[Rfam]
RNA: U5 spliceosomal RNA
Nucleotides: 119
Base pairs, nucleotide, nucleotide: 003077004076005075006074008067009066010065011064012063014061015060016059017058018057027053028052029051030050031049032048033047034046095119101118102117103116105114106113
Number, partner (000 for none) and nucleotide at each position: 001000a002000g003077c004076u005075g006074c007000g008067c009066g010065g011064u012063g013000a014061g015060c016059a017058c018057a019000a020000a021000g022000c023000g024000a025000a026000c027053u028052a029051u030050u031049c032048u033047u034046u035000c036000g037000c038000c039000u040000u041000u042000u043000a044000c045000u046034a047033a048032a049031g050030a051029a052028u053027a054000c055000c056000g057018u058017g059016u060015g061014c062000g063012c064011g065010c066009c067008g068000c069000a070000a071000c072000u073000a074006g075005c076004a077003g078000c079000a080000u081000a082000c083000g084000c085000u086000a087000a088000u089000u090000u091000u092000u093000g094000g095119a096000g097000g098000g099000a100000a101118c102117c103116g104000a105114c106113u107000c108000u109000u110000c111000u112000g113106a114105g115000g116103c117102g118101g119095u